[Rfam]
RNA sequence: AUUGAGAAUAGAGGUGCAAGGCGAAUGAGUAAAGACACCUGAGCGAAGGGAGCGACGACGGGUCUUGAAAGGUCAAAUUGCCGAAGUCAUCUUAUUUAUACCUAAGAUAGAUGUACUGGUUUAGUGUUGAACAAGCACUAAAUUGUCACUAUAAUGAUCACUAUGAUCUAAUAUAUAGUGGAGGACUACUGCUCAA
Numbered sequence: 001a002u003u004g005a006g007a008a009u010a011g012a013g014g015u016g017c018a019a020g021g022c023g024a025a026u027g028a029g030u031a032a033a034g035a036c037a038c039c040u041g042a043g044c045g046a047a048g049g050g051a052g053c054g055a056c057g058a059c060g061g062g063u064c065u066u067g068a069a070a071g072g073u074c075a076a077a078u079u080g081c082c083g084a085a086g087u088c089a090u091c092u093u094a095u096u097u098a099u100a101c102c103u104a105a106g107a108u109a110g111a112u113g114u115a116c117u118g119g120u121u122u123a124g125u126g127u128u129g130a131a132c133a134a135g136c137a138c139u140a141a142a143u144u145g146u147c148a149c150u151a152u153a154a155u156g157a158u159c160a161c162u163a164u165g166a167u168c169u170a171a172u173a174u175a176u177a178g179u180g181g182a183g184g185a186c187u188a189c190u191g192c193u194c195a196a
Stems, first nucleotide, its partner, number of pairs: 007190001009188003016081004023074002032066005038060001085117003088113005095106001118144011146181007
Shown here is a 196-nucleotide RNA sequence from Terrilactibacillus tamarindi, a member of the family "Lysine riboswitch aptamer". Rfam describes the family as follows. Riboswitches are metabolite binding domains within certain messenger RNAs that serve as precision sensors for their corresponding targets. The source organism's lineage runs through Bacteria, Bacillati, Bacillota, Bacillaceae and Terrilactibacillus.